Overview: Shown here is an 83-nucleotide RNA from Morus notabilis, a member of the family "livK RNA". The match comes from Rfam's covariance-model search (80 bits). Taxonomically the source falls in Morus (Eukaryota, Embryophyta, Euphyllophyta, rosids). The family's RNA type in Rfam is cis-regulatory element.

RNA sequence: CCGGGUGUUUGUCAUACGCCCUCUUGGCAAGUAUGGAAACACCCCGCGUACGACUGGAUCGGACACUGUUGUCCCGCCAGAUU
Numbered sequence: 001c002c003g004g005g006u007g008u009u010u011g012u013c014a015u016a017c018g019c020c021c022u023c024u025u026g027g028c029a030a031g032u033a034u035g036g037a038a039a040c041a042c043c044c045c046g047c048g049u050a051c052g053a054c055u056g057g058a059u060c061g062g063a064c065a066c067u068g069u070u071g072u073c074c075c076g077c078c079a080g081a082u083u
Base pairs, nucleotide, nucleotide: 001046003044004043007040008039009038010037012036013035014034015033016032017031018028019027020026052083053082054080055079056078057077061074062073063072064071